[Rfam]
RNA: mir-181 microRNA precursor family
RNA sequence: AAGUCUUGGGGAACAUUCAACGCUGUCGGUGAGUUUGUGACUCAGAGAAAAAACCAUCGAGUGUUGAGUGUACCCGAACGCUU
Numbered sequence: 001a002a003g004u005c006u007u008g009g010g011g012a013a014c015a016u017u018c019a020a021c022g023c024u025g026u027c028g029g030u031g032a033g034u035u036u037g038u039g040a041c042u043c044a045g046a047g048a049a050a051a052a053a054c055c056a057u058c059g060a061g062u063g064u065u066g067a068g069u070g071u072a073c074c075c076g077a078a079c080g081c082u083u
Stems, first nucleotide, its partner, number of pairs: 001083003006077003014070009026060006033054004